[Rfam]
RNA sequence: UGUGCACUUGGGGGGUUCCCUCAGCCCAGAUUGCGAGAGGGUGCAGGCCAGGCCGAAGGGCCCCACCAGUGCACG
Numbered sequence: 001u002g003u004g005c006a007c008u009u010g011g012g013g014g015g016u017u018c019c020c021u022c023a024g025c026c027c028a029g030a031u032u033g034c035g036a037g038a039g040g041g042u043g044c045a046g047g048c049c050a051g052g053c054c055g056a057a058g059g060g061c062c063c064c065a066c067c068a069g070u071g072c073a074c075g
Base pairs, nucleotide, nucleotide: 003073004072006070009068010067011066013064014063015062017060018059019058021056022055024053025052026051029048031046032045033044034043035042
This 75-nucleotide RNA sequence from Myotis myotis belongs to the Rfam family "mir-9193 microRNA precursor family". The family has 2 seed sequences and 6,008 matches in Rfam 15.1.